RNA sequence: GGACGAAACUCUGGAGAGACUCUUUUUUAUAAAAGAGCACCGAAGGAGCAAGUUGGGUAAAACCAAUGAAACUCUCAGGUAAAAGGACAGAGCGUAGAAG
Numbered sequence: 001g002g003a004c005g006a007a008a009c010u011c012u013g014g015a016g017a018g019a020c021u022c023u024u025u026u027u028u029a030u031a032a033a034a035g036a037g038c039a040c041c042g043a044a045g046g047a048g049c050a051a052g053u054u055g056g057g058u059a060a061a062a063c064c065a066a067u068g069a070a071a072c073u074c075u076c077a078g079g080u081a082a083a084a085g086g087a088c089a090g091a092g093c094g095u096a097g098a099a100g
Stems, first nucleotide, its partner, number of pairs: 006095001009092005020037004039080003042076002046074003052067004